RNA sequence: CCUGUGAAUUAGGUAGUUUCAUGUUGUUGGGCUCUGCGAUUCAAACACAAGAACAUCAAACUGCCUGACUCACUGC
Number, nucleotide and partner (000 for none) at each position: 001c000002c000003u000004g073005u072006g071007a070008a000009u068010u067011a066012g065013g064014u063015a062016g061017u060018u059019u058020c000021a000022u055023g054024u053025u052026g000027u050028u049029g048030g000031g046032c000033u000034c000035u000036g000037c000038g000039a000040u000041u000042c000043a000044a000045a000046c031047a000048c029049a028050a027051g000052a025053a024054c023055a022056u000057c000058a019059a018060a017061c016062u015063g014064c013065c012066u011067g010068a009069c000070u007071c006072a005073c004074u000075g000076c000
mir-196 microRNA precursor family: a 76-nucleotide RNA sequence from Alaudala cheleensis.
Rfam links the family to the GO terms gene silencing by miRNA and RISC complex.
Taxonomically the source falls in Alaudala (Eukaryota, Amniota, Sauropsida, Archosauria).
It scores 70 bits against the family's covariance model.